A member of the RNA family "U1 spliceosomal RNA" from Cotesia congregata, 156 nucleotides long. The base pairs follow the family's consensus structure, which is taken from published work.
RNA sequence: ACACUUACCUGGUGCAGAGGAUACCAUGAUCAAUAAGGCGGUUCCUCCAGGACGAAGCUCUUCUAUUGCACUACGGUUGAGCUGACCCCUGCGAAUAUCCCUAAUAUGGAUAUCUCGGACGUAUUAUUUUUUGUAGGGUUGUGUGUGUGUGUGUGU
Numbered sequence: 001a002c003a004c005u006u007a008c009c010u011g012g013u014g015c016a017g018a019g020g021a022u023a024c025c026a027u028g029a030u031c032a033a034u035a036a037g038g039c040g041g042u043u044c045c046u047c048c049a050g051g052a053c054g055a056a057g058c059u060c061u062u063c064u065a066u067u068g069c070a071c072u073a074c075g076g077u078u079g080a081g082c083u084g085a086c087c088c089c090u091g092c093g094a095a096u097a098u099c100c101c102u103a104a105u106a107u108g109g110a111u112a113u114c115u116c117g118g119a120c121g122u123a124u125u126a127u128u129u130u131u132u133g134u135a136g137g138g139u140u141g142u143g144u145g146u147g148u149g150u151g152u153g154u155g156u
Stems, first nucleotide, its partner, number of pairs: 012122003017047005023042003027038001049090003054086001056083003060079001063076002092117003095113003099109002147156003

Description: Taxonomically the source falls in Cotesia (Eukaryota, Allotriocarida, Endopterygota, Microgastrinae). Rfam classes the family as a spliceosomal small nuclear RNA. The literature on the family includes a 1997 paper in Nucleic Acids Res by Zwieb, "The uRNA database".